[Rfam]
RNA: Nuclear RNase P
RNA sequence: AACGUGAAGAGUUCGCAUUAGGGUUUCCUCCCUGGGAAGGUCUGAGAGUGCAAAGCAUGUAAACACGUGCCGGACUCGAGACGAGUUGCUCGGUAAUCGGACGCGAGAUACGAGAAACGUGUCGCGGUGAUUUGAUCGUGUGAGCGGACAGUGUCUUGCUGUCUGUGAUGUCUGGUCACCGAAGACUUGAAAGUUACUCGUGACGGUAUCGCUAAGCACGAUAUGCGAAACGAUCGAACGAUCGUAACUCAACUCAGACUACUCCUUCACGUU
Numbered sequence: 001a002a003c004g005u006g007a008a009g010a011g012u013u014c015g016c017a018u019u020a021g022g023g024u025u026u027c028c029u030c031c032c033u034g035g036g037a038a039g040g041u042c043u044g045a046g047a048g049u050g051c052a053a054a055g056c057a058u059g060u061a062a063a064c065a066c067g068u069g070c071c072g073g074a075c076u077c078g079a080g081a082c083g084a085g086u087u088g089c090u091c092g093g094u095a096a097u098c099g100g101a102c103g104c105g106a107g108a109u110a111c112g113a114g115a116a117a118c119g120u121g122u123c124g125c126g127g128u129g130a131u132u133u134g135a136u137c138g139u140g141u142g143a144g145c146g147g148a149c150a151g152u153g154u155c156u157u158g159c160u161g162u163c164u165g166u167g168a169u170g171u172c173u174g175g176u177c178a179c180c181g182a183a184g185a186c187u188u189g190a191a192a193g194u195u196a197c198u199c200g201u202g203a204c205g206g207u208a209u210c211g212c213u214a215a216g217c218a219c220g221a222u223a224u225g226c227g228a229a230a231c232g233a234u235c236g237a238a239c240g241a242u243c244g245u246a247a248c249u250c251a252a253c254u255c256a257g258a259c260u261a262c263u264c265c266u267u268c269a270c271g272u273u
Stems, first nucleotide, its partner, number of pairs: 001273004007267003012229007020033004042257005073087005088102001090100003103201005121186003230245006